Rfam assigns this 52-nucleotide RNA from Sulfitobacter guttiformis to the family "serC leader".
Its family is annotated with regulation of gene expression in the Gene Ontology.
The literature on the family includes a 2005 paper in Genome Biol by Corbino et al., "Evidence for a second class of S-adenosylmethionine riboswitches and other regulatory RNA motifs in alpha-proteobacteria".
Pairs were carried over by alignment from the consensus structure.
This family is a putative regulatory RNA structure that is found upstream of the serC-serA operon in some alpha-proteobacteria. The final stem of the structure overlaps the ribosome binding site of the serC reading frame.
Taxonomically the source falls in Sulfitobacter (Bacteria, Pseudomonadota, Alphaproteobacteria, Rhodobacterales).
The family's RNA type in Rfam is cis-regulatory leader.
RNA sequence: CUACGGGACACCCUUCCCCAACGAAGGGCGAUUAUCUGAGAGGAUAGCAUAA
Numbered sequence: 001c002u003a004c005g006g007g008a009c010a011c012c013c014u015u016c017c018c019c020a021a022c023g024a025a026g027g028g029c030g031a032u033u034a035u036c037u038g039a040g041a042g043g044a045u046a047g048c049a050u051a052a
Base pairs, nucleotide, nucleotide: 011028012027013026014025015024016023032047033046034045035044036043037042